[Rfam]
RNA: Small nucleolar RNA SNORA71
RNA sequence: CCCUGUAUCGAAAGUGACAUGGCCUUGCUGUUGCCAUAGUCAUUGAUAGUACAGGAACAGUGACUUUGAAAGCUUUUCCCGUGUUUGUUGGAAAAUCAGUUCCCCUCAAACCCUGUGUCUUUCAAACA
Numbered sequence: 001c002c003c004u005g006u007a008u009c010g011a012a013a014g015u016g017a018c019a020u021g022g023c024c025u026u027g028c029u030g031u032u033g034c035c036a037u038a039g040u041c042a043u044u045g046a047u048a049g050u051a052c053a054g055g056a057a058c059a060g061u062g063a064c065u066u067u068g069a070a071a072g073c074u075u076u077u078c079c080c081g082u083g084u085u086u087g088u089u090g091g092a093a094a095a096u097c098a099g100u101u102c103c104c105c106u107c108a109a110a111c112c113c114u115g116u117g118u119c120u121u122u123c124a125a126a127c128a
Stems, first nucleotide, its partner, number of pairs: 002055007013044006021035003066125007083111005090103003